[Rfam]
RNA sequence: AUCACUUCUCGGCCUUUUGGCUAAUAUCAAGUGUAGUAUCUGUUCUUAUCAGUUUAAUAUCUGGUAUGUCCUCUAUCCGAGGACAAUAUAUUAAAUGGAUUUUUGGAAAUAAGAGAUGGAAUAGGGGCUUGCUCCGUCCACUCCACUCAUUGACCUGGUAUUGCAGUACUUCCAGAAACGGUGCACAAAAA
Numbered sequence: 001a002u003c004a005c006u007u008c009u010c011g012g013c014c015u016u017u018u019g020g021c022u023a024a025u026a027u028c029a030a031g032u033g034u035a036g037u038a039u040c041u042g043u044u045c046u047u048a049u050c051a052g053u054u055u056a057a058u059a060u061c062u063g064g065u066a067u068g069u070c071c072u073c074u075a076u077c078c079g080a081g082g083a084c085a086a087u088a089u090a091u092u093a094a095a096u097g098g099a100u101u102u103u104u105g106g107a108a109a110u111a112a113g114a115g116a117u118g119g120a121a122u123a124g125g126g127g128c129u130u131g132c133u134c135c136g137u138c139c140a141c142u143c144c145a146c147u148c149a150u151u152g153a154c155c156u157g158g159u160a161u162u163g164c165a166g167u168a169c170u171u172c173c174a175g176a177a178a179c180g181g182u183g184c185a186c187a188a189a190a191a
Stems, first nucleotide, its partner, number of pairs: 007026001009024001011022004047066006068084006113143003118138002124135004148183005155175004
Dot-bracket structure: ......(.(.((((....)))).).)....................((((((........)))))).((((((.....))))))............................(((..((....((((....)))).))..)))....(((((..((((.............))))...)))))........
The record is a 191-nucleotide RNA from Macaca mulatta, which matches "U2 spliceosomal RNA" in Rfam. Lineage of the source: Eukaryota > Amniota > Theria > Euarchontoglires > Macaca. Its family is annotated with mRNA branch site recognition, pre-mRNA branch point binding and U2 snRNP in the Gene Ontology. Rfam classes the family as a spliceosomal small nuclear RNA. Rfam's curators put it in the seed alignment. The literature on the family includes a 1990 paper in Nucleic Acids Res by Thomas et al., "The spliceosomal snRNAs of Caenorhabditis elegans".